[Rfam]
RNA sequence: CGGGGAAAGAAGACCCUGUUGAGCUUGACUCUAGUUUGACAUUGUGAAAAGACAUAGAGGGCGUAGAAUAAGUGGGAGCUUCGGCGCCGUUGAAAUACCACUACCUUUAUCGUCUUUUUACUUAUUCGAUGAGACGGAGCUGGGGCGAAAGUCCCACCUUUUGGUGCGAAGGUCCUUCAAGGGCCGAUCCGGGUUGAAGACAUUGUCAGGUGGGGAGUUUGGCUGGGGCGGCACAUCUGUUAAAAGAUAACGCAGGUGUCCUAAGGGGGACUCAUCGAGAACAGAAAUCUCGAGUGGAACAAAAGGGUAAAAGUCCCCUUGAUUUUGAUUUUCAGUGUGAAUACGAACCGUGAAAGCGUGGCCUAUCGAUCCUUUAGUCCCUCGGAAUUUGAGGCUAGAGGUGCCAGAAAAGUUACCACAGGGAUAACUGGCUUGUGGCAGCCAAGCGUUCAUAGCGACGUUGCUUUUUGAUCCUUCGAUGUCGGCUCUUCCUAUCAUACCGAAGCAGAAUUCGGUAAGCGUUGGAUUGUUCACCCACUAAUAGGGAACGUGAGCUGGGUUUAGACCGUCGUGAGACAGGUUAGUUUUACCCUA
Numbered sequence: 001c002g003g004g005g006a007a008a009g010a011a012g013a014c015c016c017u018g019u020u021g022a023g024c025u026u027g028a029c030u031c032u033a034g035u036u037u038g039a040c041a042u043u044g045u046g047a048a049a050a051g052a053c054a055u056a057g058a059g060g061g062c063g064u065a066g067a068a069u070a071a072g073u074g075g076g077a078g079c080u081u082c083g084g085c086g087c088c089g090u091u092g093a094a095a096u097a098c099c100a101c102u103a104c105c106u107u108u109a110u111c112g113u114c115u116u117u118u119u120a121c122u123u124a125u126u127c128g129a130u131g132a133g134a135c136g137g138a139g140c141u142g143g144g145g146c147g148a149a150a151g152u153c154c155c156a157c158c159u160u161u162u163g164g165u166g167c168g169a170a171g172g173u174c175c176u177u178c179a180a181g182g183g184c185c186g187a188u189c190c191g192g193g194u195u196g197a198a199g200a201c202a203u204u205g206u207c208a209g210g211u212g213g214g215g216a217g218u219u220u221g222g223c224u225g226g227g228g229c230g231g232c233a234c235a236u237c238u239g240u241u242a243a244a245a246g247a248u249a250a251c252g253c254a255g256g257u258g259u260c261c262u263a264a265g266g267g268g269g270a271c272u273c274a275u276c277g278a279g280a281a282c283a284g285a286a287a288u289c290u291c292g293a294g295u296g297g298a299a300c301a302a303a304a305g306g307g308u309a310a311a312a313g314u315c316c317c318c319u320u321g322a323u324u325u326u327g328a329u330u331u332u333c334a335g336u337g338u339g340a341a342u343a344c345g346a347a348c349c350g351u352g353a354a355a356g357c358g359u360g361g362c363c364u365a366u367c368g369a370u371c372c373u374u375u376a377g378u379c380c381c382u383c384g385g386a387a388u389u390u391g392a393g394g395c396u397a398g399a400g401g402u403g404c405c406a407g408a409a410a411a412g413u414u415a416c417c418a419c420a421g422g423g424a425u426a427a428c429u430g431g432c433u434u435g436u437g438g439c440a441g442c443c444a445a446g447c448g449u450u451c452a453u454a455g456c457g458a459c460g461u462u463g464c465u466u467u468u469u470g471a472u473c474c475u476u477c478g479a480u481g482u483c484g485g486c487u488c489u490u491c492c493u494a495u496c497a498u499a500c501c502g503a504a505g506c507a508g509a510a511u512u513c514g515g516u517a518a519g520c521g522u523u524g525g526a527u528u529g530u531u532c533a534c535c536c537a538c539u540a541a542u543a544g545g546g547a548a549c550g551u552g553a554g555c556u557g558g559g560u561u562u563a564g565a566c567c568g569u570c571g572u573g574a575g576a577c578a579g580g581u582u583a584g585u586u587u588u589a590c591c592c593u594a
Stems, first nucleotide, its partner, number of pairs: 003593003007588002015422004020418002022414005028218004035210007044121010054110007071102005078085002125198005135191004143154004171185005221234001222232003235257006260361002266318006272298002275293006299308002323347003328342004349358003372400006380394004431472001433470001435469001437465006446456002483558001484556004488550001489547005496521001499516006523537003527533001564582004568577003

Rfam assigns this 594-nucleotide part of an RNA from Sparassis crispa to the family "Eukaryotic large subunit ribosomal RNA". It scores 3352 bits against the family's covariance model. Taxonomically the source falls in Sparassis (Eukaryota, Opisthokonta, Basidiomycota, Polyporales). The family's consensus secondary structure is taken from published work.